This 87-nucleotide RNA from Schnuerera ultunensis belongs to the Rfam family "c-di-GMP-I riboswitch aptamer".
RNA sequence: CACCGAUAAAGGCAAAUUUGGUGAAAACCAAGGGCGCAAAACUACAGGGCCUUCCUUGAGAUGUCAAGAUGGCAGCCAGUUACCGAA
Numbered sequence: 001c002a003c004c005g006a007u008a009a010a011g012g013c014a015a016a017u018u019u020g021g022u023g024a025a026a027a028c029c030a031a032g033g034g035c036g037c038a039a040a041a042c043u044a045c046a047g048g049g050c051c052u053u054c055c056u057u058g059a060g061a062u063g064u065c066a067a068g069a070u071g072g073c074a075g076c077c078a079g080u081u082a083c084c085g086a087a
Stems, first nucleotide, its partner, number of pairs: 012037002017032006040081004047077002049073003056067004